[Rfam]
RNA sequence: GGAUAAAAAUAUUUUGCUAUCCCCAACCAAUAACACAAUGAUACAUGGAAAAGUUAUCUCAUGUGUCAUUGCGUUAUUGGCUGGAGAUAGCAAAAAGUGCUAUCC
Numbered sequence: 001g002g003a004u005a006a007a008a009a010u011a012u013u014u015u016g017c018u019a020u021c022c023c024c025a026a027c028c029a030a031u032a033a034c035a036c037a038a039u040g041a042u043a044c045a046u047g048g049a050a051a052a053g054u055u056a057u058c059u060c061a062u063g064u065g066u067c068a069u070u071g072c073g074u075u076a077u078u079g080g081c082u083g084g085a086g087a088u089a090g091c092a093a094a095a096a097g098u099g100c101u102a103u104c105c
Stems, first nucleotide, its partner, number of pairs: 002104004012095009023084003027080008036071013050057001
Shown here is a 105-nucleotide sequence from Prunus avium, a member of the family "MIR6274 microRNA precursor family". NCBI's taxonomy places the organism under Eukaryota, Streptophyta, Mesangiospermae, rosids, Prunus. A search with the family's covariance model found it, with a score of 91 bits. The family's consensus secondary structure was predicted with RNAalifold.